[Rfam]
Shown here is a 128-nucleotide RNA from Synechococcus sp. CBW1002, a member of the family "Guanidine-I riboswitch aptamer". This family represents a conserved RNA structure found upstream of the ykkC and yxkD genes in Bacillus subtilis and related genes in other bacteria. The function of this family is unclear although it has been suggested that it may function to switch on efflux pumps and detoxification systems in response to harmful environmental molecules. Lineage of the source: Bacteria > Cyanobacteriota > Synechococcales > Synechococcaceae > Synechococcus. Gene Ontology term of the family: regulation of gene expression.
Nucleotides: 128
Base pairs, nucleotide, nucleotide: 008056009055010054011053012052015047016046020044021043022041023038024037025036026035027034028033058101060099061098062097063096064095065094066093067092068091103123105126109121110120111119
Number, partner (000 for none) and nucleotide at each position: 001000g002000g003000a004000a005000g006000a007000u008056g009055c010054c011053c012052c013000u014000a015047g016046g017000g018000u019000u020044c021043c022041g023038a024037u025036c026035c027034c028033u029000u030000u031000u032000c033028a034027g035026g036025g037024a038023u039000g040000a041022c042000u043021g044020g045000u046016c047015c048000g049000a050000g051000a052012g053011g054010g055009g056008u057000u058101c059000a060099c061098c062097g063096c064095u065094g066093g067092u068091g069000c070000u071000g072000u073000u074000g075000u076000c077000c078000c079000c080000u081000g082000g083000g084000a085000g086000a087000a088000c089000g090000c091068c092067a093066c094065c095064g096063g097062c098061g099060g100000c101058g102000g103123c104000a105126c106000g107000g108000a109121g110120g111119g112000a113000g114000a115000a116000a117000a118000g119111c120110c121109c122000g123103g124000g125000a126105g127000a128000c